[Rfam]
Nucleotides: 077
Stems, first nucleotide, its partner, number of pairs: 001077002005073002008070003011065010021054002024052006
Number, partner (000 for none) and nucleotide at each position: 001077g002076g003000c004000u005073g006072u007000g008070u009069g010068g011065g012064u013063u014062c015061u016060u017059g018058g019057c020056a021054u022053g023000c024052u025051g026050a027049u028048u029047u030000g031000u032000g033000a034000c035000u036000g037000u038000a039000g040000u041000a042000a043000a044000a045000a046000a047029a048028a049027a050026u051025c052024a053022c054021a055000u056020u057019g058018c059017c060016a061015g062014g063013g064012a065011u066000u067000a068010c069009c070008a071000c072006a073005c074000u075000a076002c077001c